[Rfam]
Nucleotides: 090
Base pairs, nucleotide, nucleotide: 002089003088004087005086006085
Number, partner (000 for none) and nucleotide at each position: 001000u002089u003088g004087g005086c006085a007000a008000a009000u010000g011000a012000u013000g014000a015000u016000a017000a018000a019000a020000u021000a022000g023000a024000c025000a026000g027000g028000g029000a030000c031000a032000u033000c034000a035000g036000a037000g038000c039000u040000c041000c042000u043000c044000u045000g046000g047000g048000a049000g050000a051000a052000a053000a054000a055000g056000a057000c058000g059000a060000c061000u062000u063000a064000g065000u066000c067000u068000a069000a070000u071000g072000g073000g074000a075000a076000u077000c078000u079000c080000u081000c082000u083000g084000a085006u086005g087004c088003u089002a090000a